A member of the RNA family "Burkholderia sRNA 1" from Caballeronia novacaledonica, 102 nucleotides long. On this family, see Sass et al., Sci Rep 2017: "Identification of small RNAs abundant in Burkholderia cenocepacia biofilms reveal putative regulators with a potential role in carbon and iron metabolism". The match comes from Rfam's covariance-model search (84 bits). Gene Ontology term of the family: bacterial biofilm matrix. Identified by RNA-seq, RACE and Northern blot. Strongly expressed in biofilm.

RNA sequence: AGUUCUGUUGCACCCAGAUUUUUGAGGUGGAGAACGAGGAGACAUGAGGCACAAAGUGCCCGACCGAAAAGCGCUGUUGGAUGAGUCCAACAGCGCUUUUUU
Numbered sequence: 001a002g003u004u005c006u007g008u009u010g011c012a013c014c015c016a017g018a019u020u021u022u023u024g025a026g027g028u029g030g031a032g033a034a035c036g037a038g039g040a041g042a043c044a045u046g047a048g049g050c051a052c053a054a055a056g057u058g059c060c061c062g063a064c065c066g067a068a069a070a071g072c073g074c075u076g077u078u079g080g081a082u083g084a085g086u087c088c089a090a091c092a093g094c095g096c097u098u099u100u101u102u
Base pairs, nucleotide, nucleotide: 002035003034004033005032009031011029012028013027014026015024016023017022039065041064045062046061048060049059050058051057052056068099069098070097071096072095073094074093075092076091077090078089079088080087081086